Record summary: Y RNA: a 99-nucleotide RNA from Rhinopithecus roxellana. The base pairs follow the family's consensus structure, which is taken from published work. For this family Rfam cites "Conserved features of Y RNAs: a comparison of experimentally derived secondary structures" (Teunissen et al., Nucleic Acids Res, 2000). It is annotated as a non-coding RNA gene. Taxonomically the source falls in Rhinopithecus (Eukaryota, Metazoa, Bilateria, Teleostomi).
RNA sequence: GUCUAGUCCAAGUGUAGUGGUGAUUCCAACUGAUUAGUUGCAAUGAGUUACAGAUUUCUUUGUUCCUUCUCCACUCUCAAUGCUUCACUUGACCAUAUA
Numbered sequence: 001g002u003c004u005a006g007u008c009c010a011a012g013u014g015u016a017g018u019g020g021u022g023a024u025u026c027c028a029a030c031u032g033a034u035u036a037g038u039u040g041c042a043a044u045g046a047g048u049u050a051c052a053g054a055u056u057u058c059u060u061u062g063u064u065c066c067u068u069c070u071c072c073a074c075u076c077u078c079a080a081u082g083c084u085u086c087a088c089u090u091g092a093c094c095a096u097a098u099a
Base pairs, nucleotide, nucleotide: 004095006093007092008091010090011089014086016081018079019078020077022076028064029063030062032060033059